Shown here is a 61-nucleotide RNA from Carlito syrichta, a member of the family "mir-1285 microRNA precursor family". It scores 58 bits against the family's covariance model. The base pairs follow the family's consensus structure, which was predicted with RNAalifold.

RNA sequence: AAGGAGAAUCACUUGAGCCCAGGAGUUUGAGACCAGCCUGGGCAACAAAGUGAGACCUUAG
Numbered sequence: 001a002a003g004g005a006g007a008a009u010c011a012c013u014u015g016a017g018c019c020c021a022g023g024a025g026u027u028u029g030a031g032a033c034c035a036g037c038c039u040g041g042g043c044a045a046c047a048a049a050g051u052g053a054g055a056c057c058u059u060a061g
Stems, first nucleotide, its partner, number of pairs: 009053006017043007027036003